A member of the RNA family "RT-4 RNA", 119 nucleotides long.
RNA sequence: UACACCGCUGACAGUUGAAAUACUGUUAUAUCCGCCUUUAUAGGUUUUGGUGAGUGGAAAUUAUUCCGGUCAGGAGCUGCAAGUAGUGAGCAAUGUUCGAAAGCGGCGAGGAGAUAGAA
Numbered sequence: 001u002a003c004a005c006c007g008c009u010g011a012c013a014g015u016u017g018a019a020a021u022a023c024u025g026u027u028a029u030a031u032c033c034g035c036c037u038u039u040a041u042a043g044g045u046u047u048u049g050g051u052g053a054g055u056g057g058a059a060a061u062u063a064u065u066c067c068g069g070u071c072a073g074g075a076g077c078u079g080c081a082a083g084u085a086g087u088g089a090g091c092a093a094u095g096u097u098c099g100a101a102a103g104c105g106g107c108g109a110g111g112a113g114a115u116a117g118a119a
Stems, first nucleotide, its partner, number of pairs: 003056003010027006032050002035044003065112003076107005086098001089094001
The sequence is in the family's curated seed alignment. By type it is a small RNA.